[Rfam]
Nucleotides: 095
Stems, first nucleotide, its partner, number of pairs: 010088005016082002020078002023075001025073010
Number, partner (000 for none) and nucleotide at each position: 001000a002000u003000c004000a005000u006000u007000g008000g009000u010088u011087g012086a013085c014084a015000a016082c017081g018000a019000g020078a021077g022000a023075g024000a025073g026072c027071a028070c029069g030068c031067u032066u033065g034064u035000c036000a037000g038000c039000a040000u041000u042000c043000a044000u045000g046000g047000g048000g049000a050000g051000g052000a053000c054000a055000u056000g057000g058000u059000u060000g061000u062000a063000u064034a065033c066032a067031a068030g069029c070028g071027u072026g073025c074000u075023c076000u077021c078020u079000c080000u081017c082016g083000u084014u085013g086012u087011c088010a089000u090000a091000c092000g093000a094000u095000g
Background
A member of the RNA family "MIR535 microRNA precursor family" from Tripterygium wilfordii, 95 nucleotides long. It scores 102 bits against the family's covariance model. The organism belongs to Tripterygium, within Eukaryota.